RNA sequence: UAGUUGUUAACGCUGAAUCGUAAAGAGCGGGGGAACCAAUUGAUCGGGGUGAAUCUCAGAAAUGAGUAGGGCGACUCGUCCGUCCGAAUCCGACAGCUAACCUCGUAAGCGUAGGUGAGGAGGUUU
Numbered sequence: 001u002a003g004u005u006g007u008u009a010a011c012g013c014u015g016a017a018u019c020g021u022a023a024a025g026a027g028c029g030g031g032g033g034a035a036c037c038a039a040u041u042g043a044u045c046g047g048g049g050u051g052a053a054u055c056u057c058a059g060a061a062a063u064g065a066g067u068a069g070g071g072c073g074a075c076u077c078g079u080c081c082g083u084c085c086g087a088a089u090c091c092g093a094c095a096g097c098u099a100a101c102c103u104c105g106u107a108a109g110c111g112u113a114g115g116u117g118a119g120g121a122g123g124u125u126u
Stems, first nucleotide, its partner, number of pairs: 011111004018026002027106006037046001047091003055066004069085004
Shown here is a 126-nucleotide sequence from Brevibacillus fluminis, a member of the family "c-di-AMP riboswitch aptamer (ydaO/yuaA leader)". The pairing is the family consensus, mapped onto this sequence. The source organism's lineage runs through Bacteria, Bacillota, Bacilli, Caryophanales and Brevibacillus.